[Rfam]
Nucleotides: 055
Base pairs, nucleotide, nucleotide: 003051004050005049006048007047009022010021011020012019013018025052031042032041033040
Number, partner (000 for none) and nucleotide at each position: 001000a002000u003051c004050g005049u006048u007047c008000a009022u010021c011020c012019u013018a014000u015000u016000c017000u018013u019012g020011g021010g022009a023000c024000g025052g026000a027000a028000g029000u030000a031042a032041g033040u034000a035000a036000u037000g038000a039000c040033a041032c042031u043000g044000a045000a046000g047007g048006a049005a050004c051003g052025c053000a054000u055000c
This 55-nucleotide RNA belongs to the Rfam family "Glutamine riboswitch aptamer (glnA leader)". A reference for the family is Ames and Breaker (2011), "Bacterial aptamers that selectively bind glutamine", RNA Biol. It is one of the family's seed sequences.